SAM riboswitch aptamer (S box leader): a 107-nucleotide RNA from Bacillus sp. HNG. The base pairs follow the family's consensus structure, which is taken from published work.
[Rfam]
RNA sequence: CUCUUAUUUAGAGCGGUGGAGGGAUGUGCCCGAUGAAACCCAGCAACCGUCAACAUUUGUUGAAAAGGUGCCAAUUCACACAAAGCAAAAGCUUUGGAAGAUGAGAG
Numbered sequence: 001c002u003c004u005u006a007u008u009u010a011g012a013g014c015g016g017u018g019g020a021g022g023g024a025u026g027u028g029c030c031c032g033a034u035g036a037a038a039c040c041c042a043g044c045a046a047c048c049g050u051c052a053a054c055a056u057u058u059g060u061u062g063a064a065a066a067g068g069u070g071c072c073a074a075u076u077c078a079c080a081c082a083a084a085g086c087a088a089a090a091g092c093u094u095u096g097g098a099a100g101a102u103g104a105g106a107g
Base pairs, nucleotide, nucleotide: 001107002106003105004104005103006102007101008100013041015040016039017038021031022030023029025080026079027078028077043071044070045069047068048067050063051062052061076099081096082095083094084093085092086091

The source organism's lineage runs through Bacteria, Bacillota, Caryophanales, Bacillaceae and Bacillus. A search with the family's covariance model found it, with a score of 82 bits.